A member of the RNA family "Mason-Pfizer monkey virus packaging signal" from Octodon degus, 298 nucleotides long. By type it is a cis-regulatory element. The base pairs follow the family's consensus structure, which was predicted with PFOLD. Rfam links the family to the GO term viral genome packaging.
RNA sequence: UGGCGCCCCACGUGGAGGCCUGGCACGGAGGAUUUAACGAGGGAGCCGUUCGAGAGCCCAGGUAUGAAGCAGAUAGUGAAAGUAAAUUCCGAGGCCAACGCUGUGUGGGUGUCUGCCACGCCGCUCGAGCCACGGUGAGUGAACGGCAACCCCCGUCCCCUUUUCCAGCAUGGGUCAAGCAUUAAGCGAGCAUGAACUCUUUGUGGAAAGCCUCAGUAAGGCACUCAAGACAUGAGGGAUUAAGAUAAAAGAAAAGGAAUUAUUACAGUAUUUUAAGUUUAUUCAUGAGGUUUGCCUG
Numbered sequence: 001u002g003g004c005g006c007c008c009c010a011c012g013u014g015g016a017g018g019c020c021u022g023g024c025a026c027g028g029a030g031g032a033u034u035u036a037a038c039g040a041g042g043g044a045g046c047c048g049u050u051c052g053a054g055a056g057c058c059c060a061g062g063u064a065u066g067a068a069g070c071a072g073a074u075a076g077u078g079a080a081a082g083u084a085a086a087u088u089c090c091g092a093g094g095c096c097a098a099c100g101c102u103g104u105g106u107g108g109g110u111g112u113c114u115g116c117c118a119c120g121c122c123g124c125u126c127g128a129g130c131c132a133c134g135g136u137g138a139g140u141g142a143a144c145g146g147c148a149a150c151c152c153c154c155g156u157c158c159c160c161u162u163u164u165c166c167a168g169c170a171u172g173g174g175u176c177a178a179g180c181a182u183u184a185a186g187c188g189a190g191c192a193u194g195a196a197c198u199c200u201u202u203g204u205g206g207a208a209a210g211c212c213u214c215a216g217u218a219a220g221g222c223a224c225u226c227a228a229g230a231c232a233u234g235a236g237g238g239a240u241u242a243a244g245a246u247a248a249a250a251g252a253a254a255a256g257g258a259a260u261u262a263u264u265a266c267a268g269u270a271u272u273u274u275a276a277g278u279u280u281a282u283u284c285a286u287g288a289g290g291u292u293u294g295c296c297u298g
Stems, first nucleotide, its partner, number of pairs: 006031002012026003036050004089135002093131002100124002104120005140177003144174001184225001186222002233275005239269002243261002246258001284298002287296001